[Rfam]
A member of the RNA family "MIR394 microRNA precursor family" from Hibiscus trionum, 102 nucleotides long. The match comes from Rfam's covariance-model search (81 bits). NCBI's taxonomy places the organism under Eukaryota, Euphyllophyta, Spermatophyta, Gunneridae, Hibiscus.
RNA sequence: CUCACAGAGUUUAUUGGCAUUUUGUCCACCUCCGAUCAUACAGCCACCUCUAGGCUCUAACCUUUCAUGGAGGUGGACAUACUGCCAACUGGGCUCUGUUGG
Numbered sequence: 001c002u003c004a005c006a007g008a009g010u011u012u013a014u015u016g017g018c019a020u021u022u023u024g025u026c027c028a029c030c031u032c033c034g035a036u037c038a039u040a041c042a043g044c045c046a047c048c049u050c051u052a053g054g055c056u057c058u059a060a061c062c063u064u065u066c067a068u069g070g071a072g073g074u075g076g077a078c079a080u081a082c083u084g085c086c087a088a089c090u091g092g093g094c095u096c097u098g099u100u101g102g
Stems, first nucleotide, its partner, number of pairs: 011092001014088006023079011